[Rfam]
RNA sequence: GUGGGGGAGGGCCUUCUCUUCCUGGUUCUUCCCGGAGUCAGGGAAAAGCUGGCUUGAGAGGGCAAAAAAAAAAAAAA
Dot-bracket structure: .............(((((...((((...((((.(....).)).))...))))...))))).................
Numbered sequence: 001g002u003g004g005g006g007g008a009g010g011g012c013c014u015u016c017u018c019u020u021c022c023u024g025g026u027u028c029u030u031c032c033c034g035g036a037g038u039c040a041g042g043g044a045a046a047a048g049c050u051g052g053c054u055u056g057a058g059a060g061g062g063c064a065a066a067a068a069a070a071a072a073a074a075a076a077a
Stems, first nucleotide, its partner, number of pairs: 014060005022052004029045002031042002034039001